[Rfam]
RNA sequence: AACUCAUCGAACGGCGCACUCCUCCUCCCAGCGCCAUUCGAUUUUGGAUCGAUGACACUCCUCCUCCCGGUUGUCGAUCAGUUUUGAUAGGCCCGACGGAUCUCCUCCCCCGUCGGGCUUUUCAU
Numbered sequence: 001a002a003c004u005c006a007u008c009g010a011a012c013g014g015c016g017c018a019c020u021c022c023u024c025c026u027c028c029c030a031g032c033g034c035c036a037u038u039c040g041a042u043u044u045u046g047g048a049u050c051g052a053u054g055a056c057a058c059u060c061c062u063c064c065u066c067c068c069g070g071u072u073g074u075c076g077a078u079c080a081g082u083u084u085u086g087a088u089a090g091g092c093c094c095g096a097c098g099g100a101u102c103u104c105c106u107c108c109c110c111c112g113u114c115g116g117g118c119u120u121u122u123c124a125u
Stems, first nucleotide, its partner, number of pairs: 007041003011037001013035005047079010089120011
A member of the RNA family "Alphaproteobacterial ar14" from Arminella tumorigenes, 125 nucleotides long. It scores 104 bits against the family's covariance model. The literature on the family includes a 2012 paper in RNA Biol by del Val et al., "A survey of sRNA families in alpha-proteobacteria". Rfam classes the family as a small RNA. The base pairs follow the family's consensus structure.